RNA sequence: GGAAGUCACUGAAUUAGAGAUCGGGGCUUCUUUUAUUUUAUUAUUUUUAUAUUGAGGUUUAGUUAUGUCUCUAACUGCUGCAGAUAAAGCAAAAAUCGUUGCUGAUUUUGGUCGUGGUACU
Dot-bracket structure: ......(.((((........)))).).........................(((.((...........)).)))...............................................

Notes:
The record is a 121-nucleotide RNA from Frischella perrara, which matches "Ribosomal S15 leader" in Rfam. Clan: Ribosomal Protein S15 Leader clan. The family's RNA type in Rfam is cis-regulatory leader. The family's consensus secondary structure is taken from published work. A reference for the family is Benard et al. (1996), "Pseudoknot and translational control in the expression of the S15 ribosomal protein", Biochimie. Lineage of the source: Bacteria > Pseudomonadota > Orbales > Orbaceae > Frischella. Gene Ontology term of the family: regulation of translation, ncRNA-mediated.